[Rfam]
A member of the RNA family "t44 RNA" from Aggregatibacter segnis, 87 nucleotides long.
By type it is a small RNA.
RNA sequence: UUAAUCAAUUUACUAAAACACACACAUAUCAGAAAGGCUAAAUCGGGGUGCCAAACGGUCGAUUGGCUGGAUAUGUGGAGGCUAAAC
Numbered sequence: 001u002u003a004a005u006c007a008a009u010u011u012a013c014u015a016a017a018a019c020a021c022a023c024a025c026a027u028a029u030c031a032g033a034a035a036g037g038c039u040a041a042a043u044c045g046g047g048g049u050g051c052c053a054a055a056c057g058g059u060c061g062a063u064u065g066g067c068u069g070g071a072u073a074u075g076u077g078g079a080g081g082c083u084a085a086a087c
Stems, first nucleotide, its partner, number of pairs: 023077008036068005042063004050059003

Lineage of the source: Bacteria > Pseudomonadota > Gammaproteobacteria > Pasteurellales > Aggregatibacter segnis.